[Rfam]
Rfam assigns this 223-nucleotide RNA sequence from Salinibacillus xinjiangensis to the family "T-box leader". The base pairs follow the family's consensus structure, which is taken from published work. Rfam links the family to the GO term tRNA binding. It scores 146 bits against the family's covariance model. Uncharged tRNA acts as the effector for transcription antitermination of genes in the T-box leader family. Lineage of the source: Bacteria > Bacillota > Bacilli > Bacillaceae > Salinibacillus.
RNA sequence: AAUAAAGCUAUGAUAGGAACUAGUAGCAGGAAAGCUAUCUAAAGAGAGUCGGUGUACGCUGGGAACCGAUGUUAGCCUACUGUGAAUCCAUCCUUGAGCAGAUAUACUGAACCACUUUUAAGUAGGUAUGUCCGGUUUACACCGUUAUCGUAACCGAGUUGGAGGACAAAUUUGUCUUCAAUUAGGGUGGUAUCGCGGGUAAAGUAUAACUCUCGUCCCUUUA
Numbered sequence: 001a002a003u004a005a006a007g008c009u010a011u012g013a014u015a016g017g018a019a020c021u022a023g024u025a026g027c028a029g030g031a032a033a034g035c036u037a038u039c040u041a042a043a044g045a046g047a048g049u050c051g052g053u054g055u056a057c058g059c060u061g062g063g064a065a066c067c068g069a070u071g072u073u074a075g076c077c078u079a080c081u082g083u084g085a086a087u088c089c090a091u092c093c094u095u096g097a098g099c100a101g102a103u104a105u106a107c108u109g110a111a112c113c114a115c116u117u118u119u120a121a122g123u124a125g126g127u128a129u130g131u132c133c134g135g136u137u138u139a140c141a142c143c144g145u146u147a148u149c150g151u152a153a154c155c156g157a158g159u160u161g162g163a164g165g166a167c168a169a170a171u172u173u174g175u176c177u178u179c180a181a182u183u184a185g186g187g188u189g190g191u192a193u194c195g196c197g198g199g200u201a202a203a204g205u206a207u208a209a210c211u212c213u214c215g216u217c218c219c220u221u222u223a
Base pairs, nucleotide, nucleotide: 007099008098015094016093017092018091026083027082028081029080031078037073039071048070049069050068051067052066053065102131103130104129105128106127107126108125133144134143135142162179163178164177165176166175167174168173184220185219186218187217195216196215197214198213199212